[Rfam]
RNA sequence: AGCCACUGAUGAAAUUUGAUUCUGCCAAAUGAAUGUCAGUGAUAUCACAAUUUACGUUCCACUUUUCUCUGAGGCU
Numbered sequence: 001a002g003c004c005a006c007u008g009a010u011g012a013a014a015u016u017u018g019a020u021u022c023u024g025c026c027a028a029a030u031g032a033a034u035g036u037c038a039g040u041g042a043u044a045u046c047a048c049a050a051u052u053u054a055c056g057u058u059c060c061a062c063u064u065u066u067c068u069c070u071g072a073g074g075c076u
Stems, first nucleotide, its partner, number of pairs: 001076004

A member of the RNA family "Small nucleolar RNA SNORD47" from Oreotrochilus melanogaster, 76 nucleotides long. It scores 62 bits against the family's covariance model.